[Rfam]
RNA: Small nucleolar RNA SNORD22
RNA sequence: UCCCAGUGAAGAAAUGUUCAAGGCUGUACCUUCUGUUCUAGUCCCAGAUCCUGUAAAGGUGAACUCACUGGGCCGGCUGGGGAAAGGAGGAAAGUUUGUUACAAAAGGAAUUGUCUGAGGGAG
Numbered sequence: 001u002c003c004c005a006g007u008g009a010a011g012a013a014a015u016g017u018u019c020a021a022g023g024c025u026g027u028a029c030c031u032u033c034u035g036u037u038c039u040a041g042u043c044c045c046a047g048a049u050c051c052u053g054u055a056a057a058g059g060u061g062a063a064c065u066c067a068c069u070g071g072g073c074c075g076g077c078u079g080g081g082g083a084a085a086g087g088a089g090g091a092a093a094g095u096u097u098g099u100u101a102c103a104a105a106a107g108g109a110a111u112u113g114u115c116u117g118a119g120g121g122a123g
Base pairs, nucleotide, nucleotide: 001122002121003120004119